[Rfam]
The family of this 62-nucleotide sequence from Sphingomonas sp. ID1715 is "Fluoride riboswitch aptamer (crcB RNA motif)". Pairs were carried over by alignment from the consensus structure, which is taken from published work. It scores 62 bits against the family's covariance model.

Nucleotides: 062
Stems, first nucleotide, its partner, number of pairs: 010025004016053006033043003
Number, partner (000 for none) and nucleotide at each position: 001000c002000a003000c004000g005000g006000u007000g008000a009000c010025g011024g012023g013022g014000a015000u016053g017052g018051a019050g020049u021048u022013c023012c024011c025010c026000g027000a028000u029000a030000a031000c032000c033043g034042c035041c036000g037000u038000u039000c040000c041035g042034g043033c044000u045000g046000a047000u048021g049020a050019c051018u052017c053016c054000u055000a056000c057000c058000a059000a060000c061000a062000c